Source information: Rfam assigns this 373-nucleotide RNA from Pseudomonas putida to the family "rne-II RNA". It is annotated as a cis-regulatory element.

RNA sequence: AUACGUGCAGGGUGGAGAUGCACAGCCCUCGGACCGUGUAGCACCGCGUCCGGCCACCAGCCCACUGACGGUUGGUGAGCGGAUAAGGUCCUGAACAGAUGCCCUCCGGGCGUCCACGGCUGACGGUUGAUUCCUCCUCCUGACUGAGUGCACAAGGCCCGCUUGGUUGAUUCGGAUACCUAUUCGAAGCCACCGGGGCCUUGUUGGCACCGCAGCAAACAGGACGCGUCGUCGCGACAACGGCAGGCUGGGCAACCGGCUGGUGCCGAACGUCGCUCGACACGGGGGUGGCCCGGCCACCCUUUGCGCACCUUGGCACCGACCAUGAGACGUCGUGUGUGCCGAACGCCGUUUCCGGCAGCCCGGAAACCGA
Numbered sequence: 001a002u003a004c005g006u007g008c009a010g011g012g013u014g015g016a017g018a019u020g021c022a023c024a025g026c027c028c029u030c031g032g033a034c035c036g037u038g039u040a041g042c043a044c045c046g047c048g049u050c051c052g053g054c055c056a057c058c059a060g061c062c063c064a065c066u067g068a069c070g071g072u073u074g075g076u077g078a079g080c081g082g083a084u085a086a087g088g089u090c091c092u093g094a095a096c097a098g099a100u101g102c103c104c105u106c107c108g109g110g111c112g113u114c115c116a117c118g119g120c121u122g123a124c125g126g127u128u129g130a131u132u133c134c135u136c137c138u139c140c141u142g143a144c145u146g147a148g149u150g151c152a153c154a155a156g157g158c159c160c161g162c163u164u165g166g167u168u169g170a171u172u173c174g175g176a177u178a179c180c181u182a183u184u185c186g187a188a189g190c191c192a193c194c195g196g197g198g199c200c201u202u203g204u205u206g207g208c209a210c211c212g213c214a215g216c217a218a219a220c221a222g223g224a225c226g227c228g229u230c231g232u233c234g235c236g237a238c239a240a241c242g243g244c245a246g247g248c249u250g251g252g253c254a255a256c257c258g259g260c261u262g263g264u265g266c267c268g269a270a271c272g273u274c275g276c277u278c279g280a281c282a283c284g285g286g287g288g289u290g291g292c293c294c295g296g297c298c299a300c301c302c303u304u305u306g307c308g309c310a311c312c313u314u315g316g317c318a319c320c321g322a323c324c325a326u327g328a329g330a331c332g333u334c335g336u337g338u339g340u341g342c343c344g345a346a347c348g349c350c351g352u353u354u355c356c357g358g359c360a361g362c363c364c365g366g367a368a369a370c371c372g373a
Stems, first nucleotide, its partner, number of pairs: 014137004023129005029123004036117003098114006138224005227308003231281003234276004241268004246261006285303007316340004320335004351370007
Dot-bracket structure: .............((((.....(((((.((((...(((...........................................................((((((.....)))))))))..)))).)))))....))))(((((.............................................................................)))))..(((.(((((((...((((.((((((....))))))...))))....))))..)))...(((((((.....)))))))..))).......((((((((........)))).))))..........(((((((......)))))))...